A member of the RNA family "tRNA" from Acholeplasma laidlawii, 73 nucleotides long. It is one of the family's seed sequences. The source organism's lineage runs through Bacteria, Mollicutes, Acholeplasmatales, Acholeplasmataceae and Acholeplasma. Transfer RNA (tRNA) molecules are approximately 80 nucleotides in length.
[Rfam]
RNA sequence: GGCCCGUUGGAGAAACGGUUAACUCACAUGCCUUUCACGCAUGCAUUCACGGGUUCGAAUCCCGUACGGGUCA
Numbered sequence: 001g002g003c004c005c006g007u008u009g010g011a012g013a014a015a016c017g018g019u020u021a022a023c024u025c026a027c028a029u030g031c032c033u034u035u036c037a038c039g040c041a042u043g044c045a046u047u048c049a050c051g052g053g054u055u056c057g058a059a060u061c062c063c064g065u066a067c068g069g070g071u072c073a
Stems, first nucleotide, its partner, number of pairs: 001072007010025003027043005049065005